[Rfam]
RNA sequence: GCAUGGGUUUGGAUUUAUGGCAGCCUGUCCCCUGGGCCUCUCAUAGCAUCCCAUGACAGAGCAAACUGGCCCCAAACCAUUGCCUGGCCUCUGUCUGUAGGCUGCAGGCACUGAAGUGGGUUGCACAGUG
Numbered sequence: 001g002c003a004u005g006g007g008u009u010u011g012g013a014u015u016u017a018u019g020g021c022a023g024c025c026u027g028u029c030c031c032c033u034g035g036g037c038c039u040c041u042c043a044u045a046g047c048a049u050c051c052c053a054u055g056a057c058a059g060a061g062c063a064a065a066c067u068g069g070c071c072c073c074a075a076a077c078c079a080u081u082g083c084c085u086g087g088c089c090u091c092u093g094u095c096u097g098u099a100g101g102c103u104g105c106a107g108g109c110a111c112u113g114a115a116g117u118g119g120g121u122u123g124c125a126c127a128g129u130g
Base pairs, nucleotide, nucleotide: 002055003054004053005051006050007049008048015046016045017044018043019042020041022039023038024035025034067123068122069121070120071119072118078113079112083108084107085104086103087102088101089100090099